[Rfam]
RNA sequence: ACGCAGCACCGGGCCCCUCUGACGCGAGUGCCGGAUUCCCGUGAUGUCGGAGCUGCGAU
Numbered sequence: 001a002c003g004c005a006g007c008a009c010c011g012g013g014c015c016c017c018u019c020u021g022a023c024g025c026g027a028g029u030g031c032c033g034g035a036u037u038c039c040c041g042u043g044a045u046g047u048c049g050g051a052g053c054u055g056c057g058a059u
Base pairs, nucleotide, nucleotide: 006053007052009050010049011048012047022042023041024040026038027037028036029035
RNA: terC RNA
Organism: Paenirhizobium selenitireducens